Archaeal large subunit ribosomal RNA: a 447-nucleotide part of an RNA from an uncultured archaeon. Rfam's curators put it in the seed alignment. The literature on the family includes a 2001 paper in Science by Yusupov et al., "Crystal structure of the ribosome at 5.5 A resolution".
[Rfam]
RNA sequence: CCCCUCGAAACAUGCCGUAGCAUGACCCGGUCUGAGAUGGAUAGCGUUGUAGAGCCACCGAUUGGGGGAUCCGAAGUCGAAAGACUUCGCCCCCCUGUCAAACUCCGAAGGCGCUAUCGUCGUAGAAGACUGGAGUCCGGGCUGGGGGGUAAGCUCCCAGUCCAUGAGGGAAUGAACCCUGACUGAGGUUAAGGUCCCUUAGUGUCGGCUAAGUGUUAACACUAAAGAGCGUUGCAGACCACAAACAGCUGGAAGGUUAGCUUAGAAGCAGCUACCCUCUAAGGAGUGCGUAACAGCUCACCAGUCGAGGUUUGUGGCAUCGAAAAUGGAUGGGGCUUAAGCCGACCACCGAUACCUCAGGGAUCUGAAAGGAUAUCCUGUAGAGGGGCGUUCUGCAUGGGCAGAAGCAUCCCUGUGAGGGGAUGUGGACCGUGCAGAAACGAGAAU
Number, nucleotide and partner (000 for none) at each position: 001c388002c387003c386004c385005u384006c383007g000008a000009a000010a000011c024012a023013u022014g021015c020016c000017g000018u000019a000020g015021c014022a013023u012024g011025a000026c135027c133028c132029g131030g130031u129032c128033u000034g000035a000036g121037a120038u119039g000040g118041a117042u116043a115044g114045c113046g112047u111048u000049g000050u000051a000052g106053a104054g103055c000056c000057a000058c000059c000060g099061a098062u097063u000064g095065g094066g093067g092068g091069a000070u000071c000072c000073g088074a087075a086076g085077u084078c083079g000080a000081a000082a000083g078084a077085c076086u075087u074088c073089g000090c000091c068092c067093c066094c065095c064096u000097g062098u061099c060100a000101a000102a000103c054104u053105c000106c052107g000108a000109a000110g000111g047112c046113g045114c044115u043116a042117u041118c040119g038120u037121c036122g000123u000124a000125g000126a000127a000128g032129a031130c030131u029132g028133g027134a000135g026136u000137c000138c000139g163140g162141g161142c160143u159144g158145g157146g156147g155148g000149g000150u000151a000152a000153g000154c000155u147156c146157c145158c144159a143160g142161u141162c140163c139164a000165u000166g000167a000168g179169g178170g177171a000172a000173u000174g000175a000176a000177c170178c169179c168180u000181g000182a000183c360184u359185g358186a357187g356188g355189u354190u000191a000192a000193g350194g349195u348196c000197c000198c000199u000200u000201a000202g347203u000204g346205u345206c344207g343208g342209c341210u000211a000212a000213g000214u000215g000216u000217u000218a000219a000220c000221a000222c000223u000224a000225a000226a000227g321228a320229g000230c000231g318232u317233u316234g315235c314236a313237g312238a311239c310240c309241a000242c000243a000244a000245a000246c000247a000248g305249c304250u303251g302252g301253a000254a278255g277256g276257u000258u000259a273260g272261c271262u000263u000264a000265g000266a000267a000268g000269c000270a000271g261272c260273u259274a000275c000276c256277c255278u254279c283280u000281a000282a000283g279284g299285a000286g000287u000288g297289c296290g000291u000292a000293a000294c000295a000296g289297c288298u000299c284300a000301c252302c251303a250304g249305u248306c000307g000308a000309g240310g239311u238312u237313u236314g235315u234316g233317g232318c231319a000320u228321c227322g000323a000324a000325a000326a000327u000328g000329g000330a000331u000332g000333g000334g000335g000336c000337u000338u000339a000340a000341g209342c208343c207344g206345a205346c204347c202348a195349c194350c193351g000352a000353u000354a189355c188356c187357u186358c185359a184360g183361g378362g377363a374364u373365c372366u371367g000368a000369a000370a000371g366372g365373a364374u363375a000376u000377c362378c361379u000380g000381u000382a000383g006384a005385g004386g003387g002388g001389c442390g000391u439392u438393c437394u436395g435396c434397a433398u432399g431400g430401g000402c000403a000404g000405a000406a000407g426408c425409a424410u423411c422412c421413c420414u419415g000416u000417g000418a000419g414420g413421g412422g411423a410424u409425g408426u407427g000428g000429a000430c400431c399432g398433u397434g396435c395436a394437g393438a392439a391440a000441c000442g389443a000444g000445a000446a000447u000